This 117-nucleotide RNA from Aquariibacter albus belongs to the Rfam family "ALIL pseudoknot". For this family Rfam cites "Apical loop-internal loop RNA pseudoknots: a new type of stimulator of -1 translational frameshifting in bacteria" (Mazauric et al., J Biol Chem, 2008).
RNA sequence: CGCGUUUUUCGCCCAGGCGGAGCUCGACCGCCGGCUGAAGUGAUGCGGGCCUUCGUGAAUCAGCAUCGUGACGUCCACGGGGUCGAGCCGAUCUGCCGGGUGCUGCAGAUCGCCCCC
Numbered sequence: 001c002g003c004g005u006u007u008u009u010c011g012c013c014c015a016g017g018c019g020g021a022g023c024u025c026g027a028c029c030g031c032c033g034g035c036u037g038a039a040g041u042g043a044u045g046c047g048g049g050c051c052u053u054c055g056u057g058a059a060u061c062a063g064c065a066u067c068g069u070g071a072c073g074u075c076c077a078c079g080g081g082g083u084c085g086a087g088c089c090g091a092u093c094u095g096c097c098g099g100g101u102g103c104u105g106c107a108g109a110u111c112g113c114c115c116c117c
Stems, first nucleotide, its partner, number of pairs: 016032005079116004089112002092109005098103001
The organism belongs to Aquariibacter, within Bacteria. By type it is a cis-regulatory element. Pairs were carried over by alignment from the consensus structure, which is taken from published work. It scores 106 bits against the family's covariance model. Its family is annotated with positive regulation of translational frameshifting in the Gene Ontology.